RNA sequence: CCUCACACAUUGCCCUUAUCAUAUCGUACUGCUAAAUCAGUACAUUUGGCCUUCUACAUGACUUGUGGCCUAAUACACGUGCACACUGUCAGUGCAUAGAUUAGUACGAUAUGAUAAGGGCAGUGUGUGAGGG
Numbered sequence: 001c002c003u004c005a006c007a008c009a010u011u012g013c014c015c016u017u018a019u020c021a022u023a024u025c026g027u028a029c030u031g032c033u034a035a036a037u038c039a040g041u042a043c044a045u046u047u048g049g050c051c052u053u054c055u056a057c058a059u060g061a062c063u064u065g066u067g068g069c070c071u072a073a074u075a076c077a078c079g080u081g082c083a084c085a086c087u088g089u090c091a092g093u094g095c096a097u098a099g100a101u102u103a104g105u106a107c108g109a110u111a112u113g114a115u116a117a118g119g120g121c122a123g124u125g126u127g128u129g130a131g132g133g
Base pairs, nucleotide, nucleotide: 001133002132003131005128006127007126008125009124010123012121013120014119015118016117017116018115019114022111023110024109025108026107027106028105029104030103
A member of the RNA family "mir-130 microRNA precursor family" from Neogobius melanostomus, 133 nucleotides long. A reference for the family is Houbaviy et al. (2003), "Embryonic stem cell-specific MicroRNAs", Dev Cell. A search with the family's covariance model found it, with a score of 41 bits. Gene Ontology terms of the family: RISC complex and miRNA-mediated post-transcriptional gene silencing.